Source information: Streptomyces-metH RNA: a 122-nucleotide RNA sequence from Streptomyces boluensis. The base pairs follow the family's consensus structure, which is taken from published work. The match comes from Rfam's covariance-model search (86 bits).
RNA sequence: CCUGUCUGCCUGCUGGACGGUCUUCACAGGGGCCCCGUCGUCCCCGUUACCCUGGCGGCGUACGGCUUCCCACCGGACGCCGUAAAGCCGACAGCCGUCGCACUCCAGGGAGAUCGUCCAUG
Numbered sequence: 001c002c003u004g005u006c007u008g009c010c011u012g013c014u015g016g017a018c019g020g021u022c023u024u025c026a027c028a029g030g031g032g033c034c035c036c037g038u039c040g041u042c043c044c045c046g047u048u049a050c051c052c053u054g055g056c057g058g059c060g061u062a063c064g065g066c067u068u069c070c071c072a073c074c075g076g077a078c079g080c081c082g083u084a085a086a087g088c089c090g091a092c093a094g095c096c097g098u099c100g101c102a103c104u105c106c107a108g109g110g111a112g113a114u115c116g117u118c119c120a121u122g
Base pairs, nucleotide, nucleotide: 061084062083063082064081068077069076070075087101088100090099091098092097